[Rfam]
RNA: Molybdenum/Tungsten riboswitch aptamer (Moco RNA motif)
Organism: Thermodesulfitimonas autotrophica
RNA sequence: UAGCGGUAAACCUCCGAGCCCGGUCACUUAAGGCGGCGAAAAGCUAAGGGGCCAGGGCCGACAGGGUGUACCUGGAAACGGGUGCGCCUCCCGGCGGAAAGGAGGUGGCGAAGCGGUUUU
Numbered sequence: 001u002a003g004c005g006g007u008a009a010a011c012c013u014c015c016g017a018g019c020c021c022g023g024u025c026a027c028u029u030a031a032g033g034c035g036g037c038g039a040a041a042a043g044c045u046a047a048g049g050g051g052c053c054a055g056g057g058c059c060g061a062c063a064g065g066g067u068g069u070a071c072c073u074g075g076a077a078a079c080g081g082g083u084g085c086g087c088c089u090c091c092c093g094g095c096g097g098a099a100a101g102g103a104g105g106u107g108g109c110g111a112a113g114c115g116g117u118u119u120u
Stems, first nucleotide, its partner, number of pairs: 003114002010106006018058004023053001025051001027049002032045003064089011090097002